The record is a 75-nucleotide RNA sequence from Haemonchus placei, which matches "mir-5928 microRNA precursor family" in Rfam. The family's consensus secondary structure was predicted with RNAalifold. Rfam links the family to the GO terms miRNA-mediated post-transcriptional gene silencing and RISC complex.

RNA sequence: GGCACAAGUUUGAAGUAAAGUAGAUUAGUAUGAUCAGCUGACCCUACUCAAAUAUUCUGCUUCAAGUUUGUGCCA
Numbered sequence: 001g002g003c004a005c006a007a008g009u010u011u012g013a014a015g016u017a018a019a020g021u022a023g024a025u026u027a028g029u030a031u032g033a034u035c036a037g038c039u040g041a042c043c044c045u046a047c048u049c050a051a052a053u054a055u056u057c058u059g060c061u062u063c064a065a066g067u068u069u070g071u072g073c074c075a
Base pairs, nucleotide, nucleotide: 001074002073003072004071005070006069007068008067009066011064012063013062014061015060016059017058019056020055021054022053025050027048028047029046030045032043034041035040